[Rfam]
RNA: mir-181 microRNA precursor family
RNA sequence: UGGCUGCAAUGAACAUUCAUUGCUGUCGGUUGGUUUGAGCUGCCAUAGCCCACUGACCAAUGAGUGCAAACUGCAGCAGA
Numbered sequence: 001u002g003g004c005u006g007c008a009a010u011g012a013a014c015a016u017u018c019a020u021u022g023c024u025g026u027c028g029g030u031u032g033g034u035u036u037g038a039g040c041u042g043c044c045a046u047a048g049c050c051c052a053c054u055g056a057c058c059a060a061u062g063a064g065u066g067c068a069a070a071c072u073g074c075a076g077c078a079g080a
Base pairs, nucleotide, nucleotide: 001080004076005075006074007073008072014066015065016064017063018062019061020060021059022058025057026056027055028054029053030052033049034048035047